A member of the RNA family "mir-81 microRNA precursor family" from Dictyocaulus viviparus, 81 nucleotides long. Lineage of the source: Eukaryota > Opisthokonta > Protostomia > Metastrongylidae > Dictyocaulus.
RNA sequence: ACACAAUCGGCGAGCGGUUUUCACUGUGAUCUGAGAGUUCAUACUUCUGAGAUCAUUGUGAAGGCCACUUGCCUUGUGCCG
Numbered sequence: 001a002c003a004c005a006a007u008c009g010g011c012g013a014g015c016g017g018u019u020u021u022c023a024c025u026g027u028g029a030u031c032u033g034a035g036a037g038u039u040c041a042u043a044c045u046u047c048u049g050a051g052a053u054c055a056u057u058g059u060g061a062a063g064g065c066c067a068c069u070u071g072c073c074u075u076g077u078g079c080c081g
Stems, first nucleotide, its partner, number of pairs: 009073004016066009027055006034048003037044002
Record summary
Its Rfam clan is "mir-81 clan".